[Rfam]
RNA sequence: AAGCCUUCAGCGGUGAAGACAGCAGAGACUCCAAAGGACGGUCGACCUGCUGACAGGAAGACAAAAGAAAUUAAACUCUUCCAAUCACCGCGGGAACCUGCCGUGUCUGAAUCGAAGGUAAGUGGUGCGUCUGAAAUGGGACAAGAAUUAAGUCAACAUCAAAUCUAUGUAGGACAAUUAAAAGAGGCUUUAAAGAUACGAGGAGUAAAGGUUAAAGGUAAUGAUUUGUUUAAAUUUUUUGAUUUUGUAAAAGACACUUGCCCUU
Numbered sequence: 001a002a003g004c005c006u007u008c009a010g011c012g013g014u015g016a017a018g019a020c021a022g023c024a025g026a027g028a029c030u031c032c033a034a035a036g037g038a039c040g041g042u043c044g045a046c047c048u049g050c051u052g053a054c055a056g057g058a059a060g061a062c063a064a065a066a067g068a069a070a071u072u073a074a075a076c077u078c079u080u081c082c083a084a085u086c087a088c089c090g091c092g093g094g095a096a097c098c099u100g101c102c103g104u105g106u107c108u109g110a111a112u113c114g115a116a117g118g119u120a121a122g123u124g125g126u127g128c129g130u131c132u133g134a135a136a137u138g139g140g141a142c143a144a145g146a147a148u149u150a151a152g153u154c155a156a157c158a159u160c161a162a163a164u165c166u167a168u169g170u171a172g173g174a175c176a177a178u179u180a181a182a183a184g185a186g187g188c189u190u191u192a193a194a195g196a197u198a199c200g201a202g203g204a205g206u207a208a209a210g211g212u213u214a215a216a217g218g219u220a221a222u223g224a225u226u227u228g229u230u231u232a233a234a235u236u237u238u239u240u241g242a243u244u245u246u247g248u249a250a251a252a253g254a255c256a257c258u259u260g261c262c263c264u265u
Stems, first nucleotide, its partner, number of pairs: 003020001005018003030045002033042001075119003079115002085111001086109002089105005126143002130140004149192003152188003199241008209227006250265002253262001255260001
Shown here is a 265-nucleotide RNA sequence from Papio anubis, a member of the family "Mason-Pfizer monkey virus packaging signal". Rfam links the family to the GO term viral genome packaging. A reference for the family is Mustafa et al. (2004), "Mutational analysis of the predicted secondary RNA structure of the Mason-Pfizer monkey virus packaging signal", Virus Res. The organism belongs to Papio, within Eukaryota. Rfam's curators write: This family represents a group of sequences that are related to the Mason-Pfizer monkey virus (MPMV) packaging signal. The packaging signal is located in the 5' UTR and is required for specific RNA encapsidation. The family's RNA type in Rfam is cis-regulatory element.